[Rfam]
The family of this 61-nucleotide RNA sequence from Alloiococcus otitis is "Ribosomal protein L13 leader". It scores 62 bits against the family's covariance model. Rfam describes the family as follows. This family is a putative r-protein leader autoregulatory structure found in B. subtilis and other low-GC Gram-positive bacteria. It is located in the 5' untranslated regions of mRNAs encoding the L13-S9 (rplM-rpsI) ribosomal protein operon. The organism belongs to Alloiococcus otitis, within Bacteria. It is annotated as a cis-regulatory leader.

RNA sequence: GGUAUUGUUUACCCCAUGAUAAGCCCCGGAAACUUAUUGUGUGACCGAUUGUAAACAAAUG
Numbered sequence: 001g002g003u004a005u006u007g008u009u010u011a012c013c014c015c016a017u018g019a020u021a022a023g024c025c026c027c028g029g030a031a032a033c034u035u036a037u038u039g040u041g042u043g044a045c046c047g048a049u050u051g052u053a054a055a056c057a058a059a060u061g
Base pairs, nucleotide, nucleotide: 006057007056008055009054010053011052012051016040017039018038019037020036021035022034023033

Rfam links the family to the GO term regulation of gene expression. The family's consensus secondary structure was predicted with CMfinder. For this family Rfam cites "Diverse mechanisms for regulating ribosomal protein synthesis in Escherichia coli" (Zengel and Lindahl, Prog Nucleic Acid Res Mol Biol, 1994).